[Rfam]
Nucleotides: 172
Base pairs, nucleotide, nucleotide: 001016002015005012006011028172030170031169032168036163041158042157043156044155045154046153047151048150049149050148051147063146064145065144066143067142068141074138075137076136078134079133080132084128087115088114089113090112093108094107095106096105
Number, partner (000 for none) and nucleotide at each position: 001016a002015u003000g004000a005012g006011g007000g008000u009000g010000a011006c012005c013000g014000a015002a016001u017000g018000u019000g020000g021000g022000g023000a024000g025000g026000a027000c028172g029000c030170g031169u032168g033000g034000a035000g036163c037000g038000u039000a040000a041158a042157u043156c044155g045154c046153g047151a048150a049149c050148c051147g052000a053000u054000g055000g056000a057000c058000a059000a060000g061000a062000a063146c064145u065144g066143c067142a068141u069000a070000g071000a072000a073000g074138g075137c076136g077000c078134u079133g080132c081000c082000g083000a084128g085000u086000a087115g088114g089113g090112c091000a092000a093108g094107u095106g096105g097000g098000c099000a100000u101000g102000u103000a104000u105096c106095c107094a108093c109000a110000a111000a112090g113089c114088u115087c116000u117000u118000g119000u120000g121000a122000u123000c124000a125000a126000g127000g128084c129000g130000a131000u132080g133079c134078g135000g136076c137075g138074u139000a140000a141068a142067u143066g144065c145064a146063g147051c148050g149049g150048u151047u152000g153046u154045g155044c156043g157042a158041u159000g160000a161000a162000g163036g164000a165000g166000u167000g168032c169031g170030u171000u172028c

Source information:
This 172-nucleotide RNA sequence belongs to the Rfam family "Group II catalytic intron D1-D4-3". Group II introns are found in rRNA, tRNA and mRNA of organelles in fungi, plants and protists, and also in mRNA in bacteria. It scores 102 bits against the family's covariance model.